ffh sRNA: a 51-nucleotide RNA sequence from Hwanghaeella grinnelliae.
[Rfam]
RNA sequence: GUCCCACGGGGUCACGCCAGUCCGCGAGUUUCGCGCACUGGCGCGUUUUGC
Numbered sequence: 001g002u003c004c005c006a007c008g009g010g011g012u013c014a015c016g017c018c019a020g021u022c023c024g025c026g027a028g029u030u031u032c033g034c035g036c037a038c039u040g041g042c043g044c045g046u047u048u049u050g051c
Stems, first nucleotide, its partner, number of pairs: 015043007024034004
It is annotated as a small RNA. A reference for the family is Meyer et al. (2009), "Identification of candidate structured RNAs in the marine organism 'Candidatus Pelagibacter ubique'", BMC Genomics. The match comes from Rfam's covariance-model search (39 bits).